[Rfam]
RNA sequence: AUGUCGCAGAUACUGCAUCAGGAACUGAUUGGAUAAGAAUUGGUCACCAUCAGUUCUUAAUGCAUUGCCUUCAGCAUC
Numbered sequence: 001a002u003g004u005c006g007c008a009g010a011u012a013c014u015g016c017a018u019c020a021g022g023a024a025c026u027g028a029u030u031g032g033a034u035a036a037g038a039a040u041u042g043g044u045c046a047c048c049a050u051c052a053g054u055u056c057u058u059a060a061u062g063c064a065u066u067g068c069c070u071u072c073a074g075c076a077u078c
Base pairs, nucleotide, nucleotide: 014064015063016062017061018060020058021057022056023055024054025053026052027051028050030049031048032047
RNA: mir-217 microRNA precursor family
Organism: Sus scrofa